[Rfam]
RNA: Bacterial RNase P class A
RNA sequence: UGAGUCGGCCGGGCGGCCGCGGCAGGUGACUGUCGAGGAAAGUCCGGACUCCACCGAGCACGGUGGUGGCCAACAGCCACCCACGGCGACGUGCGGGACAGUGCCACAGAGAACAGACCGCCAGCGGCCCCCAGCUCUCGAGCCGGGGGUGCGGGUAAGGGUGAAACGGUGAGGUAAGAGCUCACCAGCACGCCGGGUGACCGGUGUGGCUCGGUAAACCCCACCGGGAGCAAGACCAAGAGGGCCUCGUCCGCGGGGCCUGCGCUGACGGGCUGCUCGUCCGAUGUCAGCGGGUAGGUCGCACCGAGGCGUCCAGCAAUGGGCGUCCCAGAUGGAUGGCCGCCCCUCACCCCAGGUGAGGACAGAAUCCGGCUUACAGGCCGGCUCAUUCG
Numbered sequence: 001u002g003a004g005u006c007g008g009c010c011g012g013g014c015g016g017c018c019g020c021g022g023c024a025g026g027u028g029a030c031u032g033u034c035g036a037g038g039a040a041a042g043u044c045c046g047g048a049c050u051c052c053a054c055c056g057a058g059c060a061c062g063g064u065g066g067u068g069g070c071c072a073a074c075a076g077c078c079a080c081c082c083a084c085g086g087c088g089a090c091g092u093g094c095g096g097g098a099c100a101g102u103g104c105c106a107c108a109g110a111g112a113a114c115a116g117a118c119c120g121c122c123a124g125c126g127g128c129c130c131c132c133a134g135c136u137c138u139c140g141a142g143c144c145g146g147g148g149g150u151g152c153g154g155g156u157a158a159g160g161g162u163g164a165a166a167c168g169g170u171g172a173g174g175u176a177a178g179a180g181c182u183c184a185c186c187a188g189c190a191c192g193c194c195g196g197g198u199g200a201c202c203g204g205u206g207u208g209g210c211u212c213g214g215u216a217a218a219c220c221c222c223a224c225c226g227g228g229a230g231c232a233a234g235a236c237c238a239a240g241a242g243g244g245c246c247u248c249g250u251c252c253g254c255g256g257g258g259c260c261u262g263c264g265c266u267g268a269c270g271g272g273c274u275g276c277u278c279g280u281c282c283g284a285u286g287u288c289a290g291c292g293g294g295u296a297g298g299u300c301g302c303a304c305c306g307a308g309g310c311g312u313c314c315a316g317c318a319a320u321g322g323g324c325g326u327c328c329c330a331g332a333u334g335g336a337u338g339g340c341c342g343c344c345c346c347u348c349a350c351c352c353c354a355g356g357u358g359a360g361g362a363c364a365g366a367a368u369c370c371g372g373c374u375u376a377c378a379g380g381c382c383g384g385c386u387c388a389u390u391c392g
Stems, first nucleotide, its partner, number of pairs: 001388010011377001012344007020035006040375003044372005049230004056278004061226005066080005081095001082093004096221002101219002103215003118160002120156003124152003128148004168186006188210001189208008234300004244291002269283005308327008